Bacterial large subunit ribosomal RNA: a 266-nucleotide part of an RNA from Bifidobacterium tsurumiense. The match comes from Rfam's covariance-model search (2583 bits).

RNA sequence: GGAAUCCUGAGGAGGCCUGCCCAUAGUACGAGAGGACCUGGGUGGACGAACCUCUGGUAUGCCGGUCGUCACGCCAGUGGCGCGGCCGGUUGGCUACGUUCGGGAGGGAUAACCGCUGAAAGCAUCUAAGCGGGAAGCCCGCUCCAAGAUAAGGAUUCCAUACGCGCCUUCGGGCGUGUUGAAGGCCCCAUGUAGAACACGUGGUUGAUAGGCCGGGCGUGGAAGCCCCGCGAGGGGUGGAGCUGACCGGUACUAACGGCCGAACG
Numbered sequence: 001g002g003a004a005u006c007c008u009g010a011g012g013a014g015g016c017c018u019g020c021c022c023a024u025a026g027u028a029c030g031a032g033a034g035g036a037c038c039u040g041g042g043u044g045g046a047c048g049a050a051c052c053u054c055u056g057g058u059a060u061g062c063c064g065g066u067c068g069u070c071a072c073g074c075c076a077g078u079g080g081c082g083c084g085g086c087c088g089g090u091u092g093g094c095u096a097c098g099u100u101c102g103g104g105a106g107g108g109a110u111a112a113c114c115g116c117u118g119a120a121a122g123c124a125u126c127u128a129a130g131c132g133g134g135a136a137g138c139c140c141g142c143u144c145c146a147a148g149a150u151a152a153g154g155a156u157u158c159c160a161u162a163c164g165c166g167c168c169u170u171c172g173g174g175c176g177u178g179u180u181g182a183a184g185g186c187c188c189c190a191u192g193u194a195g196a197a198c199a200c201g202u203g204g205u206u207g208a209u210a211g212g213c214c215g216g217g218c219g220u221g222g223a224a225g226c227c228c229c230g231c232g233a234g235g236g237g238u239g240g241a242g243c244u245g246a247c248c249g250g251u252a253c254u255a256a257c258g259g260c261c262g263a264a265c266g
Stems, first nucleotide, its partner, number of pairs: 001159008011145004017045007047102005055096003062089005067082006106140003113133005162179006184261004188204005209255003212251005219243001225238005